[Rfam]
RNA sequence: GACCCAUCCAGAGCGGUUGAGAGUCCUGGCUCGAUGACACCGCAGCAACCCCCCACUACGGAAGCCUCCUGAGGGUGCGGGUGCUAACGCCAGGUUCGAUGGAGC
Numbered sequence: 001g002a003c004c005c006a007u008c009c010a011g012a013g014c015g016g017u018u019g020a021g022a023g024u025c026c027u028g029g030c031u032c033g034a035u036g037a038c039a040c041c042g043c044a045g046c047a048a049c050c051c052c053c054c055a056c057u058a059c060g061g062a063a064g065c066c067u068c069c070u071g072a073g074g075g076u077g078c079g080g081g082u083g084c085u086a087a088c089g090c091c092a093g094g095u096u097c098g099a100u101g102g103a104g105c
Stems, first nucleotide, its partner, number of pairs: 001105001004102005013043005021032003026093004044085004049081002051077001053075002089097001
A member of the RNA family "SAM riboswitch aptamer (S box leader)" from Flavimobilis marinus, 105 nucleotides long. Lineage of the source: Bacteria > Bacillati > Actinomycetota > Actinomycetes > Flavimobilis.